[Rfam]
RNA sequence: CAAAGACAGCUCAAGGCCACAGCAGAAGCACUUACGGUGCAGUCCUGUCAGAUUCCAGUGAAUCUGUGAAUUCUGUU
Numbered sequence: 001c002a003a004a005g006a007c008a009g010c011u012c013a014a015g016g017c018c019a020c021a022g023c024a025g026a027a028g029c030a031c032u033u034a035c036g037g038u039g040c041a042g043u044c045c046u047g048u049c050a051g052a053u054u055c056c057a058g059u060g061a062a063u064c065u066g067u068g069a070a071u072u073c074u075g076u077u
Stems, first nucleotide, its partner, number of pairs: 015044003021077007028040003049066007